RNA sequence: AGCACCCUGCUUCCACCGAAGCCUUACGUUCCACGUGGGGGAUUGAUGUAGGUGGAGUGGGGUGCU
Dot-bracket structure: (((((((((((((.(((....((((((((...))))))))..........))))))))))))))))
A member of the RNA family "DUF3800-VIII RNA", 66 nucleotides long. About the family: Bacteroidetes, Cyanobacteria, Firmicutes, Planctomycetes (1 example), Proteobacteria, Tenericutes (1 example). The family's consensus secondary structure is taken from published work.